[Rfam]
RNA sequence: AGGGCUCCUGACUCCAGGUCCUGUGUGUUACCUCGAAAUAGCACUGGACUUGGAGUCAGAAGGCCU
Numbered sequence: 001a002g003g004g005c006u007c008c009u010g011a012c013u014c015c016a017g018g019u020c021c022u023g024u025g026u027g028u029u030a031c032c033u034c035g036a037a038a039u040a041g042c043a044c045u046g047g048a049c050u051u052g053g054a055g056u057c058a059g060a061a062g063g064c065c066u
Base pairs, nucleotide, nucleotide: 002065003064005062006061008059009058010057011056012055013054014053015052016051017050018049019048020047021046025044026043027042028041029040030039